[Rfam]
RNA sequence: ACAGGAGGGCUGGUAAAACUGAGCCUGAAGAGUGAGGCUCAGGUGACAGCAGCCUCCUAACAGAAAAGGGAUGGAGAGAUCGGUCCUGCUUACAGAAAAGCAAAGGGCUGACUGUACCAUCUGACACUU
Dot-bracket structure: ...(((((........(.(.((((((........)))))).).)........)))))..........(((........(.(((((((...(.(......).).)))))))..)......))).......
This 129-nucleotide sequence from Probosciger aterrimus belongs to the Rfam family "Small Cajal body specific RNA 4". Clan: SCARNA4 clan. Rfam describes the family as follows. scaRNAs are a specific class of small nuclear RNAs which localise to the Cajal bodies and guide the modification of RNA polymerase II transcribed spliceosomal RNAs U1, U2, U4, U5 and U12.